[Rfam]
RNA sequence: GGAAUAUAAGAACCCGUCUCUUAAUUUUUAAAUAAAAAAAAUAAAAACCGGUUCUUAAAACUCUUAUUUAAGAGCCGGUUCUUAACUUUUUUAAUUAAAAGUUAGAGACAGAUUCUUAUAUUCC
Numbered sequence: 001g002g003a004a005u006a007u008a009a010g011a012a013c014c015c016g017u018c019u020c021u022u023a024a025u026u027u028u029u030a031a032a033u034a035a036a037a038a039a040a041a042u043a044a045a046a047a048c049c050g051g052u053u054c055u056u057a058a059a060a061c062u063c064u065u066a067u068u069u070a071a072g073a074g075c076c077g078g079u080u081c082u083u084a085a086c087u088u089u090u091u092u093a094a095u096u097a098a099a100a101g102u103u104a105g106a107g108a109c110a111g112a113u114u115c116u117u118a119u120a121u122u123c124c
Base pairs, nucleotide, nucleotide: 001124002123003122004121005120006119007118008117009116010115011114012113014111016109017108018107019106020105021104023103024102025101026100027099028098029097030096031095033093034092035091036090037089038088039087042084043083044082046080047079

Record summary:
MIR9563 microRNA precursor family: a 124-nucleotide sequence from Brassica oleracea. A search with the family's covariance model found it, with a score of 101 bits. Pairs were carried over by alignment from the consensus structure, which was predicted with RNAalifold. The family has 2 seed sequences and 5,832 matches in Rfam 15.1.